[Rfam]
RNA sequence: UCUGGAACUCGGCGUGGAUACAGAGAAGCCGAUGUUUCAGA
Numbered sequence: 001u002c003u004g005g006a007a008c009u010c011g012g013c014g015u016g017g018a019u020a021c022a023g024a025g026a027a028g029c030c031g032a033u034g035u036u037u038c039a040g041a
Base pairs, nucleotide, nucleotide: 001041002040003039004038005037006036007035008034009032010031011030012029013028